[Rfam]
RNA sequence: GCUUCGUGUUGUAUGGAAGACUAGUGAUUUUGUUGUUUUUGUUGACUAACAAGAAAUCACUAAUCUGCCUACAAAGCGACAGC
Numbered sequence: 001g002c003u004u005c006g007u008g009u010u011g012u013a014u015g016g017a018a019g020a021c022u023a024g025u026g027a028u029u030u031u032g033u034u035g036u037u038u039u040u041g042u043u044g045a046c047u048a049a050c051a052a053g054a055a056a057u058c059a060c061u062a063a064u065c066u067g068c069c070u071a072c073a074a075a076g077c078g079a080c081a082g083c
Stems, first nucleotide, its partner, number of pairs: 002082002004079004009074005015068001018066003024060007033052005